[Rfam]
RNA sequence: GAGCAAUGAUGAAAAGGUGUUACUCCUGAUCUUAUAAAUAUGAAGGUUUCUACACUUGAUCUGAGCUCA
Numbered sequence: 001g002a003g004c005a006a007u008g009a010u011g012a013a014a015a016g017g018u019g020u021u022a023c024u025c026c027u028g029a030u031c032u033u034a035u036a037a038a039u040a041u042g043a044a045g046g047u048u049u050c051u052a053c054a055c056u057u058g059a060u061c062u063g064a065g066c067u068c069a
Base pairs, nucleotide, nucleotide: 001068002067003066004065014033015032016031017030018029

The record is a 69-nucleotide RNA sequence from Rousettus aegyptiacus, which matches "Small nucleolar RNA U2-30" in Rfam. Rfam 15.1 lists 664 matches to the family in 136 species. The base pairs follow the family's consensus structure, which is taken from published work. It scores 79 bits against the family's covariance model.